[Rfam]
RNA sequence: CCCUCGGAGUGUUAUAUCAAACGAAAGUAGUAGGUUCUUAGAACUAUAAAAUCGGACAUAAUGAACAGGGAA
Numbered sequence: 001c002c003c004u005c006g007g008a009g010u011g012u013u014a015u016a017u018c019a020a021a022c023g024a025a026a027g028u029a030g031u032a033g034g035u036u037c038u039u040a041g042a043a044c045u046a047u048a049a050a051a052u053c054g055g056a057c058a059u060a061a062u063g064a065a066c067a068g069g070g071a072a
Base pairs, nucleotide, nucleotide: 001070002069003068004067009059010058011057012056013055022054023053024052030047031046032045034044035043